[Rfam]
Source information: Shown here is a 203-nucleotide RNA sequence from Schizosaccharomyces japonicus, a member of the family "small nucleolar RNA snR98". The literature on the family includes a 2005 paper in J Biol Chem by Li et al., "Identification and functional analysis of 20 Box H/ACA small nucleolar RNAs (snoRNAs) from Schizosaccharomyces pombe". The family's RNA type in Rfam is H/ACA-box small nucleolar RNA. The family's consensus secondary structure was predicted with RNAalifold. Lineage of the source: Eukaryota > Schizosaccharomycetes > Schizosaccharomycetales > Schizosaccharomyces > Schizosaccharomyces japonicus.
RNA sequence: AACUGUCGCUCGCGACGUAUGUUUGGGGAGUUAGGGGCUCGUGUACUCGUUACGUGGGUUUCUUCUCCUGUGAAUCCACAUACGAUAGGCUGAAAAUAAAUGAGGCCAGGUAUAACCGUGAGUGAAGAGUGAUUUGAUGCACCAUUAAGCCGGGAUGCCAACCUUCUUUAUGUUGACCGUCUGACUAGGUGUGCGUUACAUUC
Numbered sequence: 001a002a003c004u005g006u007c008g009c010u011c012g013c014g015a016c017g018u019a020u021g022u023u024u025g026g027g028g029a030g031u032u033a034g035g036g037g038c039u040c041g042u043g044u045a046c047u048c049g050u051u052a053c054g055u056g057g058g059u060u061u062c063u064u065c066u067c068c069u070g071u072g073a074a075u076c077c078a079c080a081u082a083c084g085a086u087a088g089g090c091u092g093a094a095a096a097u098a099a100a101u102g103a104g105g106c107c108a109g110g111u112a113u114a115a116c117c118g119u120g121a122g123u124g125a126a127g128a129g130u131g132a133u134u135u136g137a138u139g140c141a142c143c144a145u146u147a148a149g150c151c152g153g154g155a156u157g158c159c160a161a162c163c164u165u166c167u168u169u170a171u172g173u174u175g176a177c178c179g180u181c182u183g184a185c186u187a188g189g190u191g192u193g194c195g196u197u198a199c200a201u202u203c
Stems, first nucleotide, its partner, number of pairs: 002130003006125009018114002022110004032103001034101001038058005044052002060094003065089001066085001137196006143189001148186002151183003155180003159175004